[Rfam]
RNA sequence: UGAACGCGAUGAUGCGAAAGGUUGCCGACACACCCGGCCCCUUUGCCAUGGCUGGGCGGGAAAUUUUCGCGGAGAAGUUCAUUUAAUAAAAUGGGCGAGAA
Numbered sequence: 001u002g003a004a005c006g007c008g009a010u011g012a013u014g015c016g017a018a019a020g021g022u023u024g025c026c027g028a029c030a031c032a033c034c035c036g037g038c039c040c041c042u043u044u045g046c047c048a049u050g051g052c053u054g055g056g057c058g059g060g061a062a063a064u065u066u067u068c069g070c071g072g073a074g075a076a077g078u079u080c081a082u083u084u085a086a087u088a089a090a091a092u093g094g095g096c097g098a099g100a101a
Stems, first nucleotide, its partner, number of pairs: 014070003018067004025059003029055001078099003082095004
A member of the RNA family "S10-Clostridia ribosomal protein leader" from Laceyella tengchongensis, 101 nucleotides long. Pairs were carried over by alignment from the consensus structure, which is taken from published work. It is annotated as a cis-regulatory leader. It scores 39 bits against the family's covariance model. On this family, see Eckert and Weinberg, BMC Microbiol 2020: "Discovery of 20 novel ribosomal leader candidates in bacteria and archaea".